[Rfam]
RNA sequence: CUUUCUCUGAGAUGUUUGCAAGCGGGCCAGUCCCCUGAGCCGAUAUUUCAACAGCACAGAAUGUGGCGCUCCGUGGUUUGUGCGCAUGCCCGGUUAGUCCGGGAAGUCUGAUAGCCACGACGACACAUUCACCUUGAACCAAGGGUUCAAGGGUUACAGCCUGCAGCGGCAUCUCGGAGAUCCC
Numbered sequence: 001c002u003u004u005c006u007c008u009g010a011g012a013u014g015u016u017u018g019c020a021a022g023c024g025g026g027c028c029a030g031u032c033c034c035c036u037g038a039g040c041c042g043a044u045a046u047u048u049c050a051a052c053a054g055c056a057c058a059g060a061a062u063g064u065g066g067c068g069c070u071c072c073g074u075g076g077u078u079u080g081u082g083c084g085c086a087u088g089c090c091c092g093g094u095u096a097g098u099c100c101g102g103g104a105a106g107u108c109u110g111a112u113a114g115c116c117a118c119g120a121c122g123a124c125a126c127a128u129u130c131a132c133c134u135u136g137a138a139c140c141a142a143g144g145g146u147u148c149a150a151g152g153g154u155u156a157c158a159g160c161c162u163g164c165a166g167c168g169g170c171a172u173c174u175c176g177g178a179g180a181u182c183c184c
Base pairs, nucleotide, nucleotide: 004180005179006178007177008176009175010174011173012172013171014170015169017168018167019166032153033152034151036149037148038147039146040145041144059130060129061128063126064125065124067122068121070120072119073118074117075116076115077114078113084107085106089103090102091101092100093099
RNA: 6S / SsrS RNA